[Rfam]
RNA sequence: GAAAUACCCAGAGGAGUGCCAGCUGAGAACACAAACACGUUUUCAGUCGCUUGAAGCUUCAUUUGUGUUCUCAGGUCUCCCCUCUGGGUUAACU
Numbered sequence: 001g002a003a004a005u006a007c008c009c010a011g012a013g014g015a016g017u018g019c020c021a022g023c024u025g026a027g028a029a030c031a032c033a034a035a036c037a038c039g040u041u042u043u044c045a046g047u048c049g050c051u052u053g054a055a056g057c058u059u060c061a062u063u064u065g066u067g068u069u070c071u072c073a074g075g076u077c078u079c080c081c082c083u084c085u086g087g088g089u090u091a092a093c094u
Stems, first nucleotide, its partner, number of pairs: 007088002011084004016079001018077001025072010